This 395-nucleotide part of an RNA from Aurelia sp. Incheon-2006 belongs to the Rfam family "Eukaryotic large subunit ribosomal RNA". Its family is annotated with structural constituent of ribosome and ribosome in the Gene Ontology.
[Rfam]
RNA sequence: GAAGUGUUGUUGCAAUAGUAAUUCUGCUCAGUACGAGAGGAACCGCAGAUUCAGACAAUUGGCAUUUGGACUUGCUUGAAAAGGCAAUGGCCCGAAGCUACCAUCUGUUGGAUUAUGACUGAACGCCUCUAAGUCAGAAUCCGUGCUAGAAAGCAACGAUAACUACCUCUGGGUAGUCUUAGGCGAGCAAGAAUAGGGCACCGUUCGCGGUGCUCCUACGUCCCAAUGCACCGAGGCAGAGACUAACUGCCGAAGUGCUAAGCGAAUCAAAAUCUAAAACUUCCAGAGAUAAAUCCUUUGCAGACGACUUAGAUAAGGAACGGGGUAUUGUAAAAAGUAGAGUAGCCUUGUUGCUACGAUCUUCUGAGAUUAAGCCCUUCGUUCUACAGAUUUGU
Numbered sequence: 001g002a003a004g005u006g007u008u009g010u011u012g013c014a015a016u017a018g019u020a021a022u023u024c025u026g027c028u029c030a031g032u033a034c035g036a037g038a039g040g041a042a043c044c045g046c047a048g049a050u051u052c053a054g055a056c057a058a059u060u061g062g063c064a065u066u067u068g069g070a071c072u073u074g075c076u077u078g079a080a081a082a083g084g085c086a087a088u089g090g091c092c093c094g095a096a097g098c099u100a101c102c103a104u105c106u107g108u109u110g111g112a113u114u115a116u117g118a119c120u121g122a123a124c125g126c127c128u129c130u131a132a133g134u135c136a137g138a139a140u141c142c143g144u145g146c147u148a149g150a151a152a153g154c155a156a157c158g159a160u161a162a163c164u165a166c167c168u169c170u171g172g173g174u175a176g177u178c179u180u181a182g183g184c185g186a187g188c189a190a191g192a193a194u195a196g197g198g199c200a201c202c203g204u205u206c207g208c209g210g211u212g213c214u215c216c217u218a219c220g221u222c223c224c225a226a227u228g229c230a231c232c233g234a235g236g237c238a239g240a241g242a243c244u245a246a247c248u249g250c251c252g253a254a255g256u257g258c259u260a261a262g263c264g265a266a267u268c269a270a271a272a273u274c275u276a277a278a279a280c281u282u283c284c285a286g287a288g289a290u291a292a293a294u295c296c297u298u299u300g301c302a303g304a305c306g307a308c309u310u311a312g313a314u315a316a317g318g319a320a321c322g323g324g325g326u327a328u329u330g331u332a333a334a335a336a337g338u339a340g341a342g343u344a345g346c347c348u349u350g351u352u353g354c355u356a357c358g359a360u361c362u363u364c365u366g367a368g369a370u371u372a373a374g375c376c377c378u379u380c381g382u383u384c385u386a387c388a389g390a391u392u393u394g395u
Base pairs, nucleotide, nucleotide: 006160007159008158009157010156011155012154013153016148017147018146019145021051023049024048025047026046027045052107053106054105055104060100061099062098067094068093069092071090072087073086074085075084076083077082109143110142111141116136117135118134119133120132167288168287169286170285171284172283173282291393292392293391294390295389296312297311300308317385318384319383320382321381322380323377324376325375327370328369335363336362337361339360342357343356344355345354346353
Its Rfam clan is "LSU clan". The family's consensus secondary structure is taken from published work.